RNA sequence: AUGUACCACGCGCACACCCCGGUUCUGAGCGCGACGUCCGCGCCCACCUGAGCGCUGCUCGCUAGGUGUUGUUAGCC
Numbered sequence: 001a002u003g004u005a006c007c008a009c010g011c012g013c014a015c016a017c018c019c020c021g022g023u024u025c026u027g028a029g030c031g032c033g034a035c036g037u038c039c040g041c042g043c044c045c046a047c048c049u050g051a052g053c054g055c056u057g058c059u060c061g062c063u064a065g066g067u068g069u070u071g072u073u074a075g076c077c
Stems, first nucleotide, its partner, number of pairs: 002016003006012001020036002023033001025031001048075004054069001
The family of this 77-nucleotide RNA sequence from Xanthomonas oryzae is "Xanthomonas sRNA sX9".
It is annotated as a small RNA.
The family's consensus secondary structure was predicted with RNAalifold.
For this family Rfam cites "Genome-wide transcriptome analysis of the plant pathogen Xanthomonas identifies sRNAs with putative virulence functions" (Schmidtke et al., Nucleic Acids Res, 2011).
A search with the family's covariance model found it, with a score of 70 bits.
NCBI's taxonomy places the organism under Bacteria, Pseudomonadota, Lysobacteraceae, Xanthomonas, Xanthomonas oryzae pv. oryzae.
The family has 16 seed sequences and 309 matches in Rfam 15.1.